This 90-nucleotide RNA sequence from Pontibacillus marinus belongs to the Rfam family "c-di-GMP-I-GGC riboswitch aptamer". The base pairs follow the family's consensus structure, which is taken from published work. Taxonomically the source falls in Pontibacillus marinus (Bacteria, Bacillati, Bacillota, Bacilli). It scores 68 bits against the family's covariance model. For this family Rfam cites "Structural and biochemical determinants of ligand binding by the c-di-GMP riboswitch " (Smith et al., Biochemistry, 2010).

RNA sequence: ACUGAAAAUGGCAAACCUAUCGAAAGAUAGGGACGCAAAGCCACGAGUCUAAAGUCCUUGUAUAGGAAUAGGAUCGUCGGGCUUCCAGGU
Number, nucleotide and partner (000 for none) at each position: 001a090002c000003u087004g086005a000006a000007a000008a000009u000010g000011g036012c035013a000014a000015a000016c031017c030018u029019a028020u027021c026022g000023a000024a000025a000026g021027a020028u019029a018030g017031g016032g000033a000034c076035g012036c011037a000038a000039a083040g082041c081042c080043a000044c079045g078046a077047g074048u073049c072050u000051a000052a000053a000054g000055u000056c000057c000058u000059u000060g000061u000062a000063u000064a000065g000066g000067a000068a000069u000070a000071g000072g049073a048074u047075c000076g034077u046078c045079g044080g042081g041082c040083u039084u000085c000086c004087a003088g000089g000090u001